This 80-nucleotide sequence from Cnephaeus nilssonii belongs to the Rfam family "mir-9243 microRNA precursor family". Pairs were carried over by alignment from the consensus structure, which was predicted with RNAalifold. Gene Ontology terms of the family: miRNA-mediated post-transcriptional gene silencing and RISC complex.
[Rfam]
RNA sequence: CCGUGCACGAAUUCCGUGCACCGGGCCUCUAGUCUUUAUAGAAUUACUAGAGGCCCGGUGCACGGAAUUCGUGCAUGGGU
Numbered sequence: 001c002c003g004u005g006c007a008c009g010a011a012u013u014c015c016g017u018g019c020a021c022c023g024g025g026c027c028u029c030u031a032g033u034c035u036u037u038a039u040a041g042a043a044u045u046a047c048u049a050g051a052g053g054c055c056c057g058g059u060g061c062a063c064g065g066a067a068u069u070c071g072u073g074c075a076u077g078g079g080u
Base pairs, nucleotide, nucleotide: 001078002077004075005074006073007072008071009070010069011068013066014065015064017062018061019060020059021058022057023056024055025054026053027052028051029050030049031048032047033046